[Rfam]
RNA sequence: CGGUCUCGUAGGCCGAAUCCUGCAAAGGCAGGUACGGGGGAUGUUUUUUGUGCACUGCGCGUGCACUUGGGGUGAAAGCGACGCUGUCGCAAGGAUAACCUCGACCCAAACCCGACAACUAACUCCGAAGGCCAUAGGAGGUCAACAU
Numbered sequence: 001c002g003g004u005c006u007c008g009u010a011g012g013c014c015g016a017a018u019c020c021u022g023c024a025a026a027g028g029c030a031g032g033u034a035c036g037g038g039g040g041a042u043g044u045u046u047u048u049u050g051u052g053c054a055c056u057g058c059g060c061g062u063g064c065a066c067u068u069g070g071g072g073u074g075a076a077a078g079c080g081a082c083g084c085u086g087u088c089g090c091a092a093g094g095a096u097a098a099c100c101u102c103g104a105c106c107c108a109a110a111c112c113c114g115a116c117a118a119c120u121a122a123c124u125c126c127g128a129a130g131g132c133c134a135u136a137g138g139a140g141g142u143c144a145a146c147a148u
Stems, first nucleotide, its partner, number of pairs: 011133004019032004035127005044069001070113003078090004093107002096104001
Shown here is a 148-nucleotide sequence from Paenalicyclobacillus mengziensis, a member of the family "c-di-AMP riboswitch aptamer (ydaO/yuaA leader)". From the family's description: This family represents a conserved RNA structure found upstream of the ydaO and yuaA genes in Bacillus subtilis and related genes in other bacteria. Taxonomically the source falls in Paenalicyclobacillus (Bacteria, Bacillati, Bacilli, Alicyclobacillaceae).